[Rfam]
RNA sequence: AAGCAGGAUUUUACUACAAUAUGGCUGCUCAGUGCUGUGUUGUCGUUCCCCCUGCUCAGAACAAUUGUUUCUUAACUAUACCUGUCUGCUGUCUACCUGUAGCAGCCAGGGACGCUUGGUCUCAUACAU
Numbered sequence: 001a002a003g004c005a006g007g008a009u010u011u012u013a014c015u016a017c018a019a020u021a022u023g024g025c026u027g028c029u030c031a032g033u034g035c036u037g038u039g040u041u042g043u044c045g046u047u048c049c050c051c052c053u054g055c056u057c058a059g060a061a062c063a064a065u066u067g068u069u070u071c072u073u074a075a076c077u078a079u080a081c082c083u084g085u086c087u088g089c090u091g092u093c094u095a096c097c098u099g100u101a102g103c104a105g106c107c108a109g110g111g112a113c114g115c116u117u118g119g120u121c122u123c124a125u126a127c128a129u
Base pairs, nucleotide, nucleotide: 003055004054005053006052007051016043017042018041019040020039021038022037023036024035025034081110082109083108084107086105087104088103089102
Dot-bracket structure: ..(((((........((((((((((........)))))))))).......))))).........................((((.((((............)))).))))...................